[Rfam]
RNA: Molybdenum/Tungsten riboswitch aptamer (Moco RNA motif)
Organism: Anoxynatronum buryatiense
RNA sequence: UUCAUUGAGUAACUCCGAGCUUUAGGACCUACAACACGUGUCACGGUCUUGAAGCCUGAAGGGUAUUGUUGGAAACGGCAGUGCCUCCCGGUGCGGAAAGGAGGAUGAGUCGGAGAUGU
Numbered sequence: 001u002u003c004a005u006u007g008a009g010u011a012a013c014u015c016c017g018a019g020c021u022u023u024a025g026g027a028c029c030u031a032c033a034a035c036a037c038g039u040g041u042c043a044c045g046g047u048c049u050u051g052a053a054g055c056c057u058g059a060a061g062g063g064u065a066u067u068g069u070u071g072g073a074a075a076c077g078g079c080a081g082u083g084c085c086u087c088c089c090g091g092u093g094c095g096g097a098a099a100g101g102a103g104g105a106u107g108a109g110u111c112g113g114a115g116a117u118g119u
Stems, first nucleotide, its partner, number of pairs: 003113001013103004019055011034041002061086011087096002